[Rfam]
RNA sequence: GUGGGCUAUGGGGACAUGUACCCUAUGACAAUCGGGGGCAAGAUCGUGGGCUCCUUGUGUGCCAUCGCUGGCGUGCUGACCAUAGCCCUGCCCGUGCCUGUCAUCGUGUCCAAC
Numbered sequence: 001g002u003g004g005g006c007u008a009u010g011g012g013g014a015c016a017u018g019u020a021c022c023c024u025a026u027g028a029c030a031a032u033c034g035g036g037g038g039c040a041a042g043a044u045c046g047u048g049g050g051c052u053c054c055u056u057g058u059g060u061g062c063c064a065u066c067g068c069u070g071g072c073g074u075g076c077u078g079a080c081c082a083u084a085g086c087c088c089u090g091c092c093c094g095u096g097c098c099u100g101u102c103a104u105c106g107u108g109u110c111c112a113a114c
Base pairs, nucleotide, nucleotide: 001114002113004111005110007108008107009106010105011104013102014101015100016099018097019096020095021094037077038076039075040074049063050062051061
Shown here is a 114-nucleotide RNA from Chelonia mydas, a member of the family "Potassium channel RNA editing signal". Taxonomically the source falls in Chelonia (Eukaryota, Bilateria, Sauropsida, Durocryptodira). This family represents a group of sequences related to the human potassium channel Kv1.1 hairpin element which directs the efficient modification of an adenosine to inosine by an adenosine deaminase acting on RNA (ADAR). The family's consensus secondary structure is taken from published work.